[Rfam]
RNA: Small Cajal body specific RNA 11
RNA sequence: GUGUCCUGACCUCAUCCUGACUCUUCCCCUCACCGGAGCUGUGGUGGUGGGGUCUGGGGGUGGACACAGAUCAUCUUACCCUCUCAAGUUAGGAGGGUUGCUGAAGAUGUUUGCAAACCCUUAAAGGCAAGAGAGGACAUC
Number, nucleotide and partner (000 for none) at each position: 001g000002u066003g065004u064005c063006c062007u000008g000009a000010c059011c058012u000013c000014a000015u000016c000017c000018u000019g000020a000021c000022u000023c000024u000025u000026c052027c051028c049029c000030u047031c046032a045033c044034c000035g000036g000037a000038g000039c000040u000041g000042u000043g000044g033045u032046g031047g030048u000049g028050g000051g027052g026053u000054c000055u000056g000057g000058g011059g010060g000061u000062g006063g005064a004065c003066a002067c000068a000069g000070a000071u000072c000073a000074u000075c000076u000077u000078a000079c000080c136081c135082u134083c133084u132085c131086a000087a000088g000089u126090u125091a000092g000093g122094a121095g120096g119097g118098u117099u116100g114101c113102u000103g112104a111105a110106g000107a000108u000109g000110u105111u104112u103113g101114c100115a000116a099117a098118c097119c096120c095121u094122u093123a000124a000125a090126g089127g000128c000129a000130a000131g085132a084133g083134a082135g081136g080137a000138c000139a000140u000141c000